[Rfam]
RNA sequence: CAUAUGGGGCUUGCGAAUGCCCCACGAGGCGCCAUGCCGAAUUUCGCGUCCUUAAUCUCACAUCAUGAGGGACGUAUCAUG
Numbered sequence: 001c002a003u004a005u006g007g008g009g010c011u012u013g014c015g016a017a018u019g020c021c022c023c024a025c026g027a028g029g030c031g032c033c034a035u036g037c038c039g040a041a042u043u044u045c046g047c048g049u050c051c052u053u054a055a056u057c058u059c060a061c062a063u064c065a066u067g068a069g070g071g072a073c074g075u076a077u078c079a080u081g
Stems, first nucleotide, its partner, number of pairs: 005024006046075006